[Rfam]
The record is an 82-nucleotide RNA sequence from Spermophilus dauricus, which matches "mir-194 microRNA precursor family" in Rfam. Lineage of the source: Eukaryota > Metazoa > Deuterostomia > Eutheria > Spermophilus. The family's consensus secondary structure was predicted with RNAalifold. For this family Rfam cites "New microRNAs from mouse and human" (Lagos-Quintana et al., RNA, 2003). Gene Ontology terms of the family: RISC complex and miRNA-mediated post-transcriptional gene silencing.
Nucleotides: 082
Stems, first nucleotide, its partner, number of pairs: 009075003016069008026059005033053003
Number, partner (000 for none) and nucleotide at each position: 001000u002000g003000g004000c005000c006000c007000c008000u009075c010074c011073u012000g013000c014000c015000u016069g017068u018067a019066a020065c021064a022063g023062c024000a025000a026059c027058u028057c029056c030055a031000u032000g033053u034052g035051g036000a037000a038000g039000u040000g041000u042000c043000c044000a045000c046000a047000g048000g049000u050000u051035c052034c053033g054000c055030u056029g057028g058027g059026g060000c061000u062023g063022c064021u065020g066019u067018u068017a069016u070000c071000c072000g073011g074010g075009g076000u077000g078000g079000g080000g081000g082000c